Rfam assigns this 69-nucleotide RNA from Bacillus sp. B-jedd to the family "Listeria sRNA sbrA".
Taxonomically the source falls in Bacillus (Bacteria, Bacillota, Bacilli, Bacillaceae).
The match comes from Rfam's covariance-model search (60 bits).
RNA sequence: CUACAGCUAGAUCCAUACCCCUAAACUCCCUAAUUUUUUGGAUAGCAUCUUGGAUGCUAUCCGCUUUUU
Numbered sequence: 001c002u003a004c005a006g007c008u009a010g011a012u013c014c015a016u017a018c019c020c021c022u023a024a025a026c027u028c029c030c031u032a033a034u035u036u037u038u039u040g041g042a043u044a045g046c047a048u049c050u051u052g053g054a055u056g057c058u059a060u061c062c063g064c065u066u067u068u069u
Stems, first nucleotide, its partner, number of pairs: 005035002008032002040062010